[Rfam]
RNA sequence: UCGUAACACGAACCGGUGUUAAAGGGUCCUGCCCAACGGCUAGUGCUGUCGGGGCAGGGACCCUUUAACACCGGUUCGUGUUACCAA
Number, nucleotide and partner (000 for none) at each position: 001u000002c000003g084004u083005a082006a081007c080008a079009c078010g077011a076012a075013c074014c073015g072016g071017u070018g069019u068020u067021a066022a065023a064024g063025g062026g061027u060028c000029c058030u057031g000032c053033c052034c051035a000036a049037c048038g000039g000040c000041u000042a000043g000044u000045g000046c000047u000048g037049u036050c000051g034052g033053g032054g000055c000056a000057g030058g029059g000060a027061c026062c025063c024064u023065u022066u021067a020068a019069c018070a017071c016072c015073g014074g013075u012076u011077c010078g009079u008080g007081u006082u005083a004084c003085c000086a000087a000
RNA: MIR5387 microRNA precursor family